[Rfam]
RNA sequence: UGCACAAGGUAAGUACUAGUACUCAGGUGAGAGGUUACUCUCAACCUCUCACCUGAGUACUAGUACUUACCUUGUGCA
Numbered sequence: 001u002g003c004a005c006a007a008g009g010u011a012a013g014u015a016c017u018a019g020u021a022c023u024c025a026g027g028u029g030a031g032a033g034g035u036u037a038c039u040c041u042c043a044a045c046c047u048c049u050c051a052c053c054u055g056a057g058u059a060c061u062a063g064u065a066c067u068u069a070c071c072u073u074g075u076g077c078a
Stems, first nucleotide, its partner, number of pairs: 001078007010069010023056007

mir-252 microRNA precursor family: a 78-nucleotide RNA from Diabrotica virgifera. Clan: mir-252 microRNA precursor family. The family has 44 seed sequences and 422 matches in Rfam 15.1. NCBI's taxonomy places the organism under Eukaryota, Altocrustacea, Endopterygota, Polyphaga, Diabrotica virgifera.